RNA sequence: UAAAAAAACAUGAUUGAGUGUAGCGUCGAUGUAAUCAAGCAUGCAAUAUUUGAUAUCAAAUAUCGUGUAGCAAGACACAACUUAGAUGCUAUUUAGAAUUUCAUCAACGCUGCACUCAAUGAUGUUUCUU
Numbered sequence: 001u002a003a004a005a006a007a008a009c010a011u012g013a014u015u016g017a018g019u020g021u022a023g024c025g026u027c028g029a030u031g032u033a034a035u036c037a038a039g040c041a042u043g044c045a046a047u048a049u050u051u052g053a054u055a056u057c058a059a060a061u062a063u064c065g066u067g068u069a070g071c072a073a074g075a076c077a078c079a080a081c082u083u084a085g086a087u088g089c090u091a092u093u094u095a096g097a098a099u100u101u102c103a104u105c106a107a108c109g110c111u112g113c114a115c116u117c118a119a120u121g122a123u124g125u126u127u128c129u130u
Base pairs, nucleotide, nucleotide: 006127007126008125009124010123011122013120014119015118016117017116018115019114020113021112022111023110024109025108026107028105030103031102
The family of this 130-nucleotide sequence from Trifolium medium is "MIR397 microRNA precursor family". The family's consensus secondary structure was predicted with WAR.